[Rfam]
Nucleotides: 173
Base pairs, nucleotide, nucleotide: 001016002015003014004013005012006011028173031170036165040160041159042158043157044156045155046151047150048149049148050147062146063145064144065143066142067141073138074137075136079132080131082129083128084127086114087113088112089111092107093106094105095104
Number, partner (000 for none) and nucleotide at each position: 001016u002015c003014c004013a005012u006011g007000g008000u009000g010000a011006c012005g013004u014003g015002g016001a017000a018000u019000c020000u021000g022000a023000a024000g025000g026000a027000a028173g029000c030000g031170a032000g033000c034000g035000g036165c037000a038000a039000a040160c041159c042158u043157c044156c045155g046151g047150u048149c049148u050147g051000a052000g053000g054000a055000a056000c057000a058000c059000g060000a061000a062146c063145u064144u065143c066142a067141u068000a069000u070000g071000a072000g073138g074137c075136u076000g077000g078000g079132u080131a081000u082129c083128g084127c085000u086114g087113g088112a089111c090000g091000a092107g093106u094105u095104u096000g097000c098000a099000a100000a101000a102000c103000a104095a105094a106093a107092c108000a109000a110000a111089g112088u113087c114086c115000u116000u117000u118000c119000u120000g121000c122000c123000g124000a125000a126000g127084g128083c129082g130000u131080u132079a133000c134000a135000a136075a137074g138073u139000a140000a141067a142066u143065g144064a145063a146062g147050c148049a149048g150047a151046u152000a153000g154000a155045u156044g157043g158042a159041g160040g161000g162000a163000a164000a165036g166000a167000u168000u169000g170031u171000a172000u173028u
The record is a 173-nucleotide sequence from Bacillus sp. MUM 13, which matches "Group II catalytic intron D1-D4-3" in Rfam.
Rfam's curators write: Group II introns are found in rRNA, tRNA and mRNA of organelles in fungi, plants and protists, and also in mRNA in bacteria.
NCBI's taxonomy places the organism under Bacteria, Bacillota, Bacilli, Bacillaceae, Bacillus.